The family of this 85-nucleotide sequence from Chenopodium quinoa is "Small nucleolar RNA SNORD25".
[Rfam]
RNA sequence: UGGAACGGUGAUGAGUCAAUACAGACCUGUAAUGAUUUUGCGGAAAUGAUCGCACUUCAUUGAACAUCUAAGGGACUGAGUUCUU
Number, nucleotide and partner (000 for none) at each position: 001u000002g084003g083004a082005a081006c080007g000008g000009u000010g000011a000012u000013g000014a000015g000016u000017c000018a000019a000020u000021a000022c000023a000024g000025a000026c000027c000028u000029g000030u000031a000032a000033u000034g000035a000036u000037u000038u000039u000040g000041c000042g000043g000044a000045a000046a000047u000048g000049a000050u000051c000052g000053c000054a000055c000056u000057u000058c000059a000060u000061u000062g000063a000064a000065c000066a000067u000068c000069u000070a000071a000072g000073g000074g000075a000076c000077u000078g000079a000080g006081u005082u004083c003084u002085u000
The base pairs follow the family's consensus structure, which was predicted with PFOLD. The family has 12 seed sequences and 985 matches in Rfam 15.1. Its family is annotated with RNA processing and nucleolus in the Gene Ontology. The source organism's lineage runs through Eukaryota, Magnoliopsida, Gunneridae, Atripliceae and Chenopodium.